[Rfam]
Rfam assigns this 122-nucleotide RNA sequence from Chroococcidiopsis thermalis to the family "Fluoride riboswitch aptamer (crcB RNA motif)". Lineage of the source: Bacteria > Cyanobacteriota > Chroococcidiopsidaceae > Chroococcidiopsis > Chroococcidiopsis thermalis. The match comes from Rfam's covariance-model search (40 bits).
RNA sequence: AUUCUAUAUGGCAAUGGAGCUUGCCAAAAUCGCCGCUUCAGUUCGUGCUAAAUGUUUUACCAGUUAUGGCUGUAAAACAAAAGCUUGUAACUAUCUGAAAGGCUGAUGGCUCCUACUUUCCA
Numbered sequence: 001a002u003u004c005u006a007u008a009u010g011g012c013a014a015u016g017g018a019g020c021u022u023g024c025c026a027a028a029a030u031c032g033c034c035g036c037u038u039c040a041g042u043u044c045g046u047g048c049u050a051a052a053u054g055u056u057u058u059a060c061c062a063g064u065u066a067u068g069g070c071u072g073u074a075a076a077a078c079a080a081a082a083g084c085u086u087g088u089a090a091c092u093a094u095c096u097g098a099a100a101g102g103c104u105g106a107u108g109g110c111u112c113c114u115a116c117u118u119u120c121c122a
Stems, first nucleotide, its partner, number of pairs: 010025004016113006032103003